[Rfam]
The family of this 193-nucleotide RNA from Mesosutterella multiformis is "Manganese Mn2+ riboswitch aptamer (yybP-ykoY)". Gene Ontology term of the family: manganese ion binding. The family has 29 seed sequences and 1,126 matches in Rfam 15.1. It scores 48 bits against the family's covariance model.
RNA sequence: CUACUUUGGGGAGUAGCCGCGCUGCAGACCCUGGACCGCCACUAAGAGCGGCAAGGCAGCGACCUGCGUCAACACACUUGGCUCCAGAAGCCAUGGCGCAGGAUUCAGAUAUCAAGACUGAACCGGCAAGACCAGAGACUCUGCUGGGUGCGUGGGAUGAGACGCCGGUCUCUGCCGCCUGCAGGGUUUCUGU
Numbered sequence: 001c002u003a004c005u006u007u008g009g010g011g012a013g014u015a016g017c018c019g020c021g022c023u024g025c026a027g028a029c030c031c032u033g034g035a036c037c038g039c040c041a042c043u044a045a046g047a048g049c050g051g052c053a054a055g056g057c058a059g060c061g062a063c064c065u066g067c068g069u070c071a072a073c074a075c076a077c078u079u080g081g082c083u084c085c086a087g088a089a090g091c092c093a094u095g096g097c098g099c100a101g102g103a104u105u106c107a108g109a110u111a112u113c114a115a116g117a118c119u120g121a122a123c124c125g126g127c128a129a130g131a132c133c134a135g136a137g138a139c140u141c142u143g144c145u146g147g148g149u150g151c152g153u154g155g156g157a158u159g160a161g162a163c164g165c166c167g168g169u170c171u172c173u174g175c176c177g178c179c180u181g182c183a184g185g186g187u188u189u190c191u192g193u
Stems, first nucleotide, its partner, number of pairs: 021060005063102009079093005106192004